[Rfam]
The family of this 129-nucleotide RNA from Bromovirus BMV is "Pseudoknot of tRNA-like structure". Gene Ontology term of the family: regulation of viral genome replication. NCBI's taxonomy places the organism under Viruses, Kitrinoviricota, Martellivirales, Bromovirus, Bromovirus BMV. The base pairs follow the family's consensus structure, which is taken from published work. On this family, see Ahlquist et al., Cell 1981: "Near identity of 3- RNA secondary structure in bromoviruses and cucumber mosaic virus". It is one of the family's seed sequences.
RNA sequence: GGUGCCUUUGAGAGUUACUCUUUGCUCUCUUCGGAAGAACCCUUAGGGGUUCGUGCAUGGGCUUGCAUAGCAAGUCUUAGAAUGCGGGUACCGUACAGUGUUGAAAAACACUGUAAAUCUCUAAAAGAG
Numbered sequence: 001g002g003u004g005c006c007u008u009u010g011a012g013a014g015u016u017a018c019u020c021u022u023u024g025c026u027c028u029c030u031u032c033g034g035a036a037g038a039a040c041c042c043u044u045a046g047g048g049g050u051u052c053g054u055g056c057a058u059g060g061g062c063u064u065g066c067a068u069a070g071c072a073a074g075u076c077u078u079a080g081a082a083u084g085c086g087g088g089u090a091c092c093g094u095a096c097a098g099u100g101u102u103g104a105a106a107a108a109c110a111c112u113g114u115a116a117a118u119c120u121c122u123a124a125a126a127g128a129g
Stems, first nucleotide, its partner, number of pairs: 001092007010029006019129001021127003037052006055085004059077008094115009